[Rfam]
Rfam assigns this 131-nucleotide RNA sequence from Streptomyces sp. DI166 to the family "Streptomyces-metH RNA". The family's consensus secondary structure is taken from published work. It scores 97 bits against the family's covariance model.
RNA sequence: CUCGUCCGCCCCGUGGACGCCCUGACCAUCAGGUCCCGGUCCCGGCUACGCUGGCGGCGUGCGCCCACCGCGGGAACCGUCCGCCCGGGUGCAAAGCCGACAGCCGUCGCACCUCAGGGAGCCCUUUCAUG
Numbered sequence: 001c002u003c004g005u006c007c008g009c010c011c012c013g014u015g016g017a018c019g020c021c022c023u024g025a026c027c028a029u030c031a032g033g034u035c036c037c038g039g040u041c042c043c044g045g046c047u048a049c050g051c052u053g054g055c056g057g058c059g060u061g062c063g064c065c066c067a068c069c070g071c072g073g074g075a076a077c078c079g080u081c082c083g084c085c086c087g088g089g090u091g092c093a094a095a096g097c098c099g100a101c102a103g104c105c106g107u108c109g110c111a112c113c114u115c116a117g118g119g120a121g122c123c124c125u126u127u128c129a130u131g
Stems, first nucleotide, its partner, number of pairs: 060093004065088002096110002099108003